[Rfam]
RNA sequence: CUCCGGCGCAGGGCGGCCACUGCCCCCCGCACACUGCGCUGCUCCGACCCACUGUGCGUGUGACAGCGGCUGUCCUGUCCUGGCAGCGCGACCGG
Numbered sequence: 001c002u003c004c005g006g007c008g009c010a011g012g013g014c015g016g017c018c019a020c021u022g023c024c025c026c027c028c029g030c031a032c033a034c035u036g037c038g039c040u041g042c043u044c045c046g047a048c049c050c051a052c053u054g055u056g057c058g059u060g061u062g063a064c065a066g067c068g069g070c071u072g073u074c075c076u077g078u079c080c081u082g083g084c085a086g087c088g089c090g091a092c093c094g095g
Stems, first nucleotide, its partner, number of pairs: 005081002008078005015071004020066003024062001025060001028058006035051002
Description
This 95-nucleotide RNA from Erinaceus europaeus belongs to the Rfam family "mir-210 microRNA precursor family". The literature on the family includes a 2005 paper in Proc Natl Acad Sci U S A by Cai et al., "Kaposi's sarcoma-associated herpesvirus expresses an array of viral microRNAs in latently infected cells". A search with the family's covariance model found it, with a score of 55 bits. Taxonomically the source falls in Erinaceus (Eukaryota, Eumetazoa, Amniota, Laurasiatheria).